[Rfam]
RNA sequence: UGACGGAAGGACACACAAGAAGUGGAGCCUGUGGCCUAAUUUGACUCAACACGGGAAACCUUACUCGGCCAGGACACUUUUAGGAUUGACAGAUUGAGAGCUCUUUCUUGAUUAGGUGGGUGGUGGUGCAUGGUCGUUCGUAGUUCGUGGAGCGAUUUGUCUGAUUAAUUUCGAUAACGAACGAGACUCCGGCUUACUAAAUAGUCUAAAGUUCGAAGGGACUUUUCAAGACUUCUUAGCAGGAUAAGUGGCACUUUUUAAGCCACACGAAAUGGAGCAAUAACAGGUCUGUGAUGCCCUUAGAUGUCCGAGGCUGCACGCGCGCUACACUGGAGAGUUCAGAAUGUUUCUUCCUACUUCGACAGAAGUGGGUAACCAUGAAAUUCUCUUCGUGACUGGGAUCGGAGCUUGCAAUUAUUCUCCGUCAACGAGGAAUUCCUAGUAAGCACUAUUUCAUCAGAAUGUGCUGAUUAUGUCCCUGUCCUUUGUACACA
Numbered sequence: 001u002g003a004c005g006g007a008a009g010g011a012c013a014c015a016c017a018a019g020a021a022g023u024g025g026a027g028c029c030u031g032u033g034g035c036c037u038a039a040u041u042u043g044a045c046u047c048a049a050c051a052c053g054g055g056a057a058a059c060c061u062u063a064c065u066c067g068g069c070c071a072g073g074a075c076a077c078u079u080u081u082a083g084g085a086u087u088g089a090c091a092g093a094u095u096g097a098g099a100g101c102u103c104u105u106u107c108u109u110g111a112u113u114a115g116g117u118g119g120g121u122g123g124u125g126g127u128g129c130a131u132g133g134u135c136g137u138u139c140g141u142a143g144u145u146c147g148u149g150g151a152g153c154g155a156u157u158u159g160u161c162u163g164a165u166u167a168a169u170u171u172c173g174a175u176a177a178c179g180a181a182c183g184a185g186a187c188u189c190c191g192g193c194u195u196a197c198u199a200a201a202u203a204g205u206c207u208a209a210a211g212u213u214c215g216a217a218g219g220g221a222c223u224u225u226u227c228a229a230g231a232c233u234u235c236u237u238a239g240c241a242g243g244a245u246a247a248g249u250g251g252c253a254c255u256u257u258u259u260a261a262g263c264c265a266c267a268c269g270a271a272a273u274g275g276a277g278c279a280a281u282a283a284c285a286g287g288u289c290u291g292u293g294a295u296g297c298c299c300u301u302a303g304a305u306g307u308c309c310g311a312g313g314c315u316g317c318a319c320g321c322g323c324g325c326u327a328c329a330c331u332g333g334a335g336a337g338u339u340c341a342g343a344a345u346g347u348u349u350c351u352u353c354c355u356a357c358u359u360c361g362a363c364a365g366a367a368g369u370g371g372g373u374a375a376c377c378a379u380g381a382a383a384u385u386c387u388c389u390u391c392g393u394g395a396c397u398g399g400g401a402u403c404g405g406a407g408c409u410u411g412c413a414a415u416u417a418u419u420c421u422c423c424g425u426c427a428a429c430g431a432g433g434a435a436u437u438c439c440u441a442g443u444a445a446g447c448a449c450u451a452u453u454u455c456a457u458c459a460g461a462a463u464g465u466g467c468u469g470a471u472u473a474u475g476u477c478c479c480u481g482u483c484c485u486u487u488g489u490a491c492a493c494a
Stems, first nucleotide, its partner, number of pairs: 001492002003489003007486007015476002019439001021437003024328001026326003030322004034317002040055004064312005070306001075118005088107002091104003122300002125298004131294001132292001133288003136284003143182006149158003162173003188276004193242002197239004203233004245269001248266005332391006344379003353372002357368004398429001403424005445468005451463003